[Rfam]
This 64-nucleotide sequence from Aquarana catesbeiana belongs to the Rfam family "mir-32 microRNA precursor family". A search with the family's covariance model found it, with a score of 76 bits. Pairs were carried over by alignment from the consensus structure, which was predicted with RNAalifold.

RNA sequence: GGAUGUAUUGCACAUUACUAAGUUGCAUGUUGUCUUGGUGCAAUUUAGUAUGUGCGAUAUUUUC
Numbered sequence: 001g002g003a004u005g006u007a008u009u010g011c012a013c014a015u016u017a018c019u020a021a022g023u024u025g026c027a028u029g030u031u032g033u034c035u036u037g038g039u040g041c042a043a044u045u046u047a048g049u050a051u052g053u054g055c056g057a058u059a060u061u062u063u064c
Stems, first nucleotide, its partner, number of pairs: 006059010017049012